[Rfam]
RNA sequence: AAAGUCUCUUCUUGGAAGGAGGAGUCAGCUCCACCAUGUAGCGAGUCUUGCGUCCCUGAAGGUAACGAAAGGUACGAAGCGUAGACAGCGAAAUCGACGAGCCGAAAUGGAGUGAACGGUAGUAAGCCCCGAAAUGCAUCAUGUUGUGAGAGGGCCGAUGUCUUGGGCGAGGCAGCAGGCAAUAGAUAAUUAUUGGUUCAACCUGACGAAACUCCAAUAAUUAUCCCCCACCGGGGUCACCGACGU
Numbered sequence: 001a002a003a004g005u006c007u008c009u010u011c012u013u014g015g016a017a018g019g020a021g022g023a024g025u026c027a028g029c030u031c032c033a034c035c036a037u038g039u040a041g042c043g044a045g046u047c048u049u050g051c052g053u054c055c056c057u058g059a060a061g062g063u064a065a066c067g068a069a070a071g072g073u074a075c076g077a078a079g080c081g082u083a084g085a086c087a088g089c090g091a092a093a094u095c096g097a098c099g100a101g102c103c104g105a106a107a108u109g110g111a112g113u114g115a116a117c118g119g120u121a122g123u124a125a126g127c128c129c130c131g132a133a134a135u136g137c138a139u140c141a142u143g144u145u146g147u148g149a150g151a152g153g154g155c156c157g158a159u160g161u162c163u164u165g166g167g168c169g170a171g172g173c174a175g176c177a178g179g180c181a182a183u184a185g186a187u188a189a190u191u192a193u194u195g196g197u198u199c200a201a202c203c204u205g206a207c208g209a210a211a212c213u214c215c216a217a218u219a220a221u222u223a224u225c226c227c228c229c230a231c232c233g234g235g236g237u238c239a240c241c242g243a244c245g246u
Stems, first nucleotide, its partner, number of pairs: 011038001013036003018032004041089002045086004049081002051076003055072003061066001126237006148231001150229001152227002154180003159174004185225011

The family of this 246-nucleotide sequence from Legionella israelensis is "Group II catalytic intron D1-D4-6". Lineage of the source: Bacteria > Pseudomonadota > Legionellales > Legionellaceae > Legionella. The match comes from Rfam's covariance-model search (110 bits). Group II introns are found in rRNA, tRNA and mRNA of organelles in fungi, plants and protists, and also in mRNA in bacteria. On this family, see Bonen and Vogel, Trends Genet 2001: "The ins and outs of group II introns".